[Rfam]
RNA: U11 spliceosomal RNA
Organism: Dreissena polymorpha
RNA sequence: AAAAAGGGCCUUUGACGUAAUGUCACUCAGCGUCUUCACGGACGUUGGGCGGAAUCGCUAGCAAGAGAUUUCGGAGGCGAAAUUUCUGUGAAAAGUGGCAGCUAGUGCUCAAAUAAGCCUGGCGCCCAA
Numbered sequence: 001a002a003a004a005a006g007g008g009c010c011u012u013u014g015a016c017g018u019a020a021u022g023u024c025a026c027u028c029a030g031c032g033u034c035u036u037c038a039c040g041g042a043c044g045u046u047g048g049g050c051g052g053a054a055u056c057g058c059u060a061g062c063a064a065g066a067g068a069u070u071u072c073g074g075a076g077g078c079g080a081a082a083u084u085u086c087u088g089u090g091a092a093a094a095g096u097g098g099c100a101g102c103u104a105g106u107g108c109u110c111a112a113a114u115a116a117g118c119c120u121g122g123c124g125c126c127c128a129a
Stems, first nucleotide, its partner, number of pairs: 008078005013025005026049010050073007097126003101123005107118003